Notes: The family of this 132-nucleotide sequence from Rattus norvegicus is "Small nucleolar RNA SNORA72". The family's consensus secondary structure was predicted with PFOLD.

RNA sequence: AUGCGAAUAUUCUCGCUGUUCUGAUUUUGUGAUAAUCAGGACAGGCUAAACAUUCGCUAUAGUACGACCAUGCAUGUGUCCCCAGACCUAGUUCUUUACCUGGGUCUGGUUUUCUCAAUGCUGGUGACAAGC
Numbered sequence: 001a002u003g004c005g006a007a008u009a010u011u012c013u014c015g016c017u018g019u020u021c022u023g024a025u026u027u028u029g030u031g032a033u034a035a036u037c038a039g040g041a042c043a044g045g046c047u048a049a050a051c052a053u054u055c056g057c058u059a060u061a062g063u064a065c066g067a068c069c070a071u072g073c074a075u076g077u078g079u080c081c082c083c084a085g086a087c088c089u090a091g092u093u094c095u096u097u098a099c100c101u102g103g104g105u106c107u108g109g110u111u112u113u114c115u116c117a118a119u120g121c122u123g124g125u126g127a128c129a130a131g132c
Stems, first nucleotide, its partner, number of pairs: 003057003016044011067125004072121002082109010
The organism belongs to Rattus, within Eukaryota.